[Rfam]
Shown here is an 88-nucleotide RNA from Nelumbo nucifera, a member of the family "Small nucleolar RNA snoR14". It is annotated as a C/D-box small nucleolar RNA. Taxonomically the source falls in Nelumbo (Eukaryota, Tracheophyta, Spermatophyta, Mesangiospermae).
RNA sequence: ACGAGGUGACUGAUGAAAUUCAUGGUUUGUCAAUCCACUGAAAUUAUUAGUGUGAUGUUAAUCAUGAAUCCCAACAUGUUCUGAUUGU
Numbered sequence: 001a002c003g004a005g006g007u008g009a010c011u012g013a014u015g016a017a018a019u020u021c022a023u024g025g026u027u028u029g030u031c032a033a034u035c036c037a038c039u040g041a042a043a044u045u046a047u048u049a050g051u052g053u054g055a056u057g058u059u060a061a062u063c064a065u066g067a068a069u070c071c072c073a074a075c076a077u078g079u080u081c082u083g084a085u086u087g088u
Stems, first nucleotide, its partner, number of pairs: 001088004